[Rfam]
Shown here is a 382-nucleotide RNA sequence from Agarivorans albus, a member of the family "Bacterial RNase P class A". It scores 319 bits against the family's covariance model.

RNA sequence: GGAGUUGGCUAGGCAAUCGCUGCUUCGUCGUUGUGCGCUCUUUCGGGAGUGGCAGACGGGCGAAGGGGAGGAAAGUCCGGGCUCUAUAGGGUAGGGUGCCAGGUAACGCCUGGGGGGCGCGAGCCCACGACAAGUGCAGCAGAGAGAAGACCGCCGAUGGCUCCUUGGAGUACAGGUAAGGCUGAAAGGGUGCGGUAAGAGCGCACCGCGCGUCUGGUAACAGUAUGCGGCGAGGUAAACUCCACCCAGAGCAAGGCCAAAUAGGCCCCCUUAAGGCGCGACCCGCGUUGGGGGCGGGUAGGCUGCUUGAGCCAUUAAGCGAUUAAUGGCCUAGACGAAUGAUUGUUCACGACAAAACCCGGCUUAUCGGCCAACUCCCUUU
Numbered sequence: 001g002g003a004g005u006u007g008g009c010u011a012g013g014c015a016a017u018c019g020c021u022g023c024u025u026c027g028u029c030g031u032u033g034u035g036c037g038c039u040c041u042u043u044c045g046g047g048a049g050u051g052g053c054a055g056a057c058g059g060g061c062g063a064a065g066g067g068g069a070g071g072a073a074a075g076u077c078c079g080g081g082c083u084c085u086a087u088a089g090g091g092u093a094g095g096g097u098g099c100c101a102g103g104u105a106a107c108g109c110c111u112g113g114g115g116g117g118c119g120c121g122a123g124c125c126c127a128c129g130a131c132a133a134g135u136g137c138a139g140c141a142g143a144g145a146g147a148a149g150a151c152c153g154c155c156g157a158u159g160g161c162u163c164c165u166u167g168g169a170g171u172a173c174a175g176g177u178a179a180g181g182c183u184g185a186a187a188g189g190g191u192g193c194g195g196u197a198a199g200a201g202c203g204c205a206c207c208g209c210g211c212g213u214c215u216g217g218u219a220a221c222a223g224u225a226u227g228c229g230g231c232g233a234g235g236u237a238a239a240c241u242c243c244a245c246c247c248a249g250a251g252c253a254a255g256g257c258c259a260a261a262u263a264g265g266c267c268c269c270c271u272u273a274a275g276g277c278g279c280g281a282c283c284c285g286c287g288u289u290g291g292g293g294g295c296g297g298g299u300a301g302g303c304u305g306c307u308u309g310a311g312c313c314a315u316u317a318a319g320c321g322a323u324u325a326a327u328g329g330c331c332u333a334g335a336c337g338a339a340u341g342a343u344u345g346u347u348c349a350c351g352a353c354a355a356a357a358c359c360c361g362g363c364u365u366a367u368c369g370g371c372c373a374a375c376u377c378c379c380u381u382u
Stems, first nucleotide, its partner, number of pairs: 001378010011367001012347007020068002023065006073365003077362005082251004089284004094247005099113005114128001115126004129242002134240002136236002151181002153177003158174002160171004189207006208231001209229005214223003255304004265295006275289005311330008